[Rfam]
RNA: TPP riboswitch aptamer (THI element)
Organism: Pseudomonas jinjuensis
RNA sequence: GCGUUCUUGUCGGGGUGCCCCAAUGCGAGGGGCUGAGAUCGGAUAGUUCCGGAUCCCGUUGAACCUGAUCGGGUUAAGACCCGCGUAGGGAAACAAGAAGUCCGCGUCC
Dot-bracket structure: .....(((((((((.((((((.......)))))......((((....)))))..)))).....((((..((((......))))..))))...)))))............